[Rfam]
RNA: Ribosomal protein L10 leader
Organism: Clostridiales bacterium CHKCI006
RNA sequence: AUUGGCGCAAUCAAUAUUCCCAAGACAGUAACGGCCAAUGGCUUAAUCAGGUUACCGAGGUGUUGAUUCAUCAAACACGAUGAAUGAAGUCCAUGCCUUGGUAUGGGCUUUUCUAUGUGGAUAU
Dot-bracket structure: ...........................(((((.(((...)))........)))))................................(((((((((....)))))))))...............
Numbered sequence: 001a002u003u004g005g006c007g008c009a010a011u012c013a014a015u016a017u018u019c020c021c022a023a024g025a026c027a028g029u030a031a032c033g034g035c036c037a038a039u040g041g042c043u044u045a046a047u048c049a050g051g052u053u054a055c056c057g058a059g060g061u062g063u064u065g066a067u068u069c070a071u072c073a074a075a076c077a078c079g080a081u082g083a084a085u086g087a088a089g090u091c092c093a094u095g096c097c098u099u100g101g102u103a104u105g106g107g108c109u110u111u112u113c114u115a116u117g118u119g120g121a122u123a124u
Stems, first nucleotide, its partner, number of pairs: 028055005034042003088109009